[Rfam]
RNA sequence: UAGGGUGAGGGUUGCAGUAAGGCUGGUACUGAUGUAAUGGCUGUCCCCAGUACCAGACAUGCUGCCUUCCUCCCCCUACA
Number, nucleotide and partner (000 for none) at each position: 001u078002a077003g076004g075005g074006u000007g072008a071009g070010g069011g000012u000013u000014g065015c064016a063017g062018u061019a060020a000021g000022g000023c056024u055025g054026g053027u052028a051029c050030u049031g048032a000033u000034g000035u000036a000037a000038u000039g000040g000041c000042u000043g000044u000045c000046c000047c000048c031049a030050g029051u028052a027053c026054c025055a024056g023057a000058c000059a000060u019061g018062c017063u016064g015065c014066c000067u000068u000069c010070c009071u008072c007073c000074c005075c004076c003077u002078a001079c000080a000
The family of this 80-nucleotide RNA sequence from Eptesicus fuscus is "mir-9186 microRNA precursor family". The family's consensus secondary structure was predicted with RNAalifold. Gene Ontology terms of the family: miRNA-mediated post-transcriptional gene silencing and RISC complex. Rfam's curators put it in the seed alignment.